[Rfam]
RNA sequence: ACGAUGUUCCGCUGCAGGGUAUAAGGGAAUUUAUGUGCAUGAGCAUCUG
Number, nucleotide and partner (000 for none) at each position: 001a000002c000003g047004a046005u045006g044007u043008u042009c041010c000011g000012c000013u039014g038015c037016a036017g000018g034019g000020u000021a000022u000023a000024a000025g000026g000027g000028a000029a000030u000031u000032u000033a000034u018035g000036u016037g015038c014039a013040u000041g009042a008043g007044c006045a005046u004047c003048u000049g000

The record is a 49-nucleotide RNA sequence from Neobacillus vireti, which matches "Ribosomal protein L19 leader" in Rfam. Rfam links the family to the GO term regulation of gene expression. By type it is a cis-regulatory leader. Lineage of the source: Bacteria > Bacillota > Bacilli > Caryophanales > Neobacillus vireti. It scores 41 bits against the family's covariance model. On this family, see Zengel and Lindahl, Prog Nucleic Acid Res Mol Biol 1994: "Diverse mechanisms for regulating ribosomal protein synthesis in Escherichia coli". This family is a putative r-protein leader autoregulatory structure found in B. subtilis and other low-GC Gram-positive bacteria. It is located in the 5' untranslated regions of mRNAs encoding ribosomal protein L19 (rplS).